RNA sequence: GAAAUUCCUGUGGGAGAGACAGCGGUAGAAGCUGUCGCCGAAGGAGCAACCGCCCCGGAAACUCUCAGGCAAACGUACUGCAGGAAGAUG
Numbered sequence: 001g002a003a004a005u006u007c008c009u010g011u012g013g014g015a016g017a018g019a020c021a022g023c024g025g026u027a028g029a030a031g032c033u034g035u036c037g038c039c040g041a042a043g044g045a046g047c048a049a050c051c052g053c054c055c056c057g058g059a060a061a062c063u064c065u066c067a068g069g070c071a072a073a074c075g076u077a078c079u080g081c082a083g084g085a086a087g088a089u090g
Stems, first nucleotide, its partner, number of pairs: 006085008019035004037070003040066002044064003050058002
RNA: Glycine riboswitch aptamer